[Rfam]
RNA sequence: AAAAGUUACAGCUUUUUCAGAAUUUGUCCAGCAGGUUUUCUGGUUUUCAGCGGAAAAUACCUCA
Numbered sequence: 001a002a003a004a005g006u007u008a009c010a011g012c013u014u015u016u017u018c019a020g021a022a023u024u025u026g027u028c029c030a031g032c033a034g035g036u037u038u039u040c041u042g043g044u045u046u047u048c049a050g051c052g053g054a055a056a057a058u059a060c061c062u063c064a
Stems, first nucleotide, its partner, number of pairs: 034061003037056006044049001
RNA: U7 small nuclear RNA